[Rfam]
RNA: Enterobacterial sRNA STnc240
Organism: Enterobacteriaceae bacterium RIT714
RNA sequence: CAAAGAUGGGGCAAAAUGCGCCGCUGCAAAAAAAUGAGAUUAACCGACGAUAUAAAAGGCGUCGGUUAUUUUUUUUG
Numbered sequence: 001c002a003a004a005g006a007u008g009g010g011g012c013a014a015a016a017u018g019c020g021c022c023g024c025u026g027c028a029a030a031a032a033a034a035u036g037a038g039a040u041u042a043a044c045c046g047a048c049g050a051u052a053u054a055a056a057a058g059g060c061g062u063c064g065g066u067u068a069u070u071u072u073u074u075u076u077g
Stems, first nucleotide, its partner, number of pairs: 011021002041068009